[Rfam]
RNA: Pistol ribozyme
RNA sequence: AGUCGUUUGAGCGACUUAAAAUAGGUUUUAAGCUCAAAGCGCCCCGAUAAUAAUCGGGAGUAACA
Dot-bracket structure: [[[[.((((((.]]]]........[[[....[)))))).]..((((((....))))))...]]].